[Rfam]
RNA sequence: AAGUGUUAAAGCUGUUUUAAAAUUUUCAUAACAGGUUUUCAGUUUUUUAACUGGAAAACUCUC
Numbered sequence: 001a002a003g004u005g006u007u008a009a010a011g012c013u014g015u016u017u018u019a020a021a022a023u024u025u026u027c028a029u030a031a032c033a034g035g036u037u038u039u040c041a042g043u044u045u046u047u048u049a050a051c052u053g054g055a056a057a058a059c060u061c062u063c
Base pairs, nucleotide, nucleotide: 034060035059036058037056038055039054040053041052042051043050044049
RNA: U7 small nuclear RNA
Organism: Saimiri boliviensis